[Rfam]
RNA sequence: CUCGUCCGCCCCGUGGACGCUGCUGACCAGCAGGGCCCGCCCCGGUUACCCUGGCGGCGUGCGCCCCCGGGGAGAGUGCCACGGGUGGCGCAAAGCCGACAGCCGUCGCACUUCGAGGGAGCCCUUUUCAUG
Numbered sequence: 001c002u003c004g005u006c007c008g009c010c011c012c013g014u015g016g017a018c019g020c021u022g023c024u025g026a027c028c029a030g031c032a033g034g035g036c037c038c039g040c041c042c043c044g045g046u047u048a049c050c051c052u053g054g055c056g057g058c059g060u061g062c063g064c065c066c067c068c069g070g071g072g073a074g075a076g077u078g079c080c081a082c083g084g085g086u087g088g089c090g091c092a093a094a095g096c097c098g099a100c101a102g103c104c105g106u107c108g109c110a111c112u113u114c115g116a117g118g119g120a121g122c123c124c125u126u127u128u129c130a131u132g
Stems, first nucleotide, its partner, number of pairs: 060092004065087001067085002095109002098107003
Shown here is a 132-nucleotide RNA from Streptomyces sp. MMG1533, a member of the family "Streptomyces-metH RNA". The family's RNA type in Rfam is small RNA. It scores 86 bits against the family's covariance model. Lineage of the source: Bacteria > Bacillati > Actinomycetes > Kitasatosporales > Streptomyces.